[Rfam]
The family of this 86-nucleotide RNA sequence from Hipposideros armiger is "mir-3154 microRNA precursor family".
Rfam 15.1 lists 134 matches to the family in 121 species.
It scores 84 bits against the family's covariance model.
Gene Ontology terms of the family: miRNA-mediated post-transcriptional gene silencing and RISC complex.
The family's consensus secondary structure was predicted with RNAalifold.
RNA sequence: AGGCCCCUCCUUCCCAGCCACGGCUCCUGCUCACCCUUGUCAUGUCAAACGAGGCAGAAGGGGAGCCGGGGGCAGAGAGCGGACCU
Numbered sequence: 001a002g003g004c005c006c007c008u009c010c011u012u013c014c015c016a017g018c019c020a021c022g023g024c025u026c027c028u029g030c031u032c033a034c035c036c037u038u039g040u041c042a043u044g045u046c047a048a049a050c051g052a053g054g055c056a057g058a059a060g061g062g063g064a065g066c067c068g069g070g071g072g073c074a075g076a077g078a079g080c081g082g083a084c085c086u
Stems, first nucleotide, its partner, number of pairs: 002085002004082002007079003012076002023073007030065003034062003037057005043051001